RNA: U8 small nucleolar RNA
RNA sequence: UCAACUGUAUAUCUAUACCUGUGCCUCAUGCAUAAAAAGAGUAAGACUGAACAUGAUGAUUGGAGAAUGCAUGAAACGUGAUUAACGUCUCUGCGUAAUCAGGACUUGCAACACCCUGAUUGCUCCUAUCUGAU
Numbered sequence: 001u002c003a004a005c006u007g008u009a010u011a012u013c014u015a016u017a018c019c020u021g022u023g024c025c026u027c028a029u030g031c032a033u034a035a036a037a038a039g040a041g042u043a044a045g046a047c048u049g050a051a052c053a054u055g056a057u058g059a060u061u062g063g064a065g066a067a068u069g070c071a072u073g074a075a076a077c078g079u080g081a082u083u084a085a086c087g088u089c090u091c092u093g094c095g096u097a098a099u100c101a102g103g104a105c106u107u108g109c110a111a112c113a114c115c116c117u118g119a120u121u122g123c124u125c126c127u128a129u130c131u132g133a134u
Stems, first nucleotide, its partner, number of pairs: 019045002023042002026040001073091002076088003079084001095123009